[Rfam]
RNA sequence: CUCCCUUGCUACCUGGGCAAAGAGGCGUCUGAUUGGUGGCGCAGCUCUUCAAUCUAGCAGGGGGAGAGAGACCAGCCCUUGUUCAUCCCAGCGCAGGAUCCCGGGCGGUGGCUGUCGCUGGUUCAUGCUGGGGGCACACGG
Dot-bracket structure: .(((((((......((...(((..(((((........)))))....)))...))...)))))))...............(((((..........((......((.(.(..(....)..).).))...))..))))).....